[Rfam]
RNA sequence: CGCUCCUUGCGUUCACUGUUGAGCCUAUAUGUUGUUAAUAUGAAUCAUAAGGCACGCGGUGAAUGCCAAGAUCG
Numbered sequence: 001c002g003c004u005c006c007u008u009g010c011g012u013u014c015a016c017u018g019u020u021g022a023g024c025c026u027a028u029a030u031g032u033u034g035u036u037a038a039u040a041u042g043a044a045u046c047a048u049a050a051g052g053c054a055c056g057c058g059g060u061g062a063a064u065g066c067c068a069a070g071a072u073c074g
Stems, first nucleotide, its partner, number of pairs: 004071002009066008018057002024052003028049004